[Rfam]
This 110-nucleotide RNA from Castor canadensis belongs to the Rfam family "Small nucleolar RNA U6-53/MBII-28". The literature on the family includes a 2001 paper in EMBO J by Huttenhofer et al., "RNomics: an experimental approach that identifies 201 candidates for novel, small, non-messenger RNAs in mouse". The match comes from Rfam's covariance-model search (119 bits).

RNA sequence: UCCCAGUGAUGAAUUGCCAUGCUAAUACUGAGCCACCAAGUAGGGCAUGGUUGCCCUACUGUGGGUGCCAGUGAGUUUAACAAAACUUCUCACAUGGAGACCUGAGGGAC
Numbered sequence: 001u002c003c004c005a006g007u008g009a010u011g012a013a014u015u016g017c018c019a020u021g022c023u024a025a026u027a028c029u030g031a032g033c034c035a036c037c038a039a040g041u042a043g044g045g046c047a048u049g050g051u052u053g054c055c056c057u058a059c060u061g062u063g064g065g066u067g068c069c070a071g072u073g074a075g076u077u078u079a080a081c082a083a084a085a086c087u088u089c090u091c092a093c094a095u096g097g098a099g100a101c102c103u104g105a106g107g108g109a110c
Stems, first nucleotide, its partner, number of pairs: 001109004041058005
Dot-bracket structure: ((((....................................(((((........)))))...............................................)))).